[Rfam]
RNA sequence: UUAUAAGCAAAAGUUGUUUUUUAGAUUCAUUCAACAAUUGAUGUAUCUAGCCAAUAUUUAAGCUAGAUACAUCAAUUGUUGAAUGAAUCUAAAAAGCAACUUUUGUUUAUAA
Numbered sequence: 001u002u003a004u005a006a007g008c009a010a011a012a013g014u015u016g017u018u019u020u021u022u023a024g025a026u027u028c029a030u031u032c033a034a035c036a037a038u039u040g041a042u043g044u045a046u047c048u049a050g051c052c053a054a055u056a057u058u059u060a061a062g063c064u065a066g067a068u069a070c071a072u073c074a075a076u077u078g079u080u081g082a083a084u085g086a087a088u089c090u091a092a093a094a095a096g097c098a099a100c101u102u103u104u105g106u107u108u109a110u111a112a
Base pairs, nucleotide, nucleotide: 002111003110004109005108006107007106009104010103011102012101013100015098016097017096018095019094020093021092022091023090024089026087027086028085029084030083031082032081033080034079035078036077037076038075039074040073041072042071043070048065049064050063051062
RNA: MIR2593 microRNA precursor family
Organism: Trifolium medium